[Rfam]
Shown here is a 105-nucleotide RNA sequence from Prunus dulcis, a member of the family "MIR6274 microRNA precursor family". Lineage of the source: Eukaryota > Tracheophyta > Rosales > Amygdaloideae > Prunus. Rfam links the family to the GO terms RISC complex and miRNA-mediated post-transcriptional gene silencing. It scores 96 bits against the family's covariance model. The base pairs follow the family's consensus structure, which was predicted with RNAalifold.

RNA sequence: GGAUAGCACUUUUUGCUAUCCUUGACCAAUAAUACAAUGACACAUGAGAUAACUUUUUCACGUGUCAUUGUAUUAUUGGUCGAGGAUAGCAAAACAGUGAUAUCC
Number, nucleotide and partner (000 for none) at each position: 001g000002g104003a103004u102005a101006g000007c000008a000009c000010u000011u094012u093013u092014u091015g090016c089017u088018a087019u086020c000021c084022u083023u082024g081025a080026c079027c078028a077029a076030u075031a074032a073033u072034a071035c070036a069037a068038u067039g066040a065041c064042a063043c062044a000045u060046g059047a058048g057049a056050u000051a000052a000053c000054u000055u000056u049057u048058u047059c046060a045061c000062g043063u042064g041065u040066c039067a038068u037069u036070g035071u034072a033073u032074u031075a030076u029077u028078g027079g026080u025081c024082g023083a022084g021085g000086a019087u018088a017089g016090c015091a014092a013093a012094a011095c000096a000097g000098u000099g000100a000101u005102a004103u003104c002105c000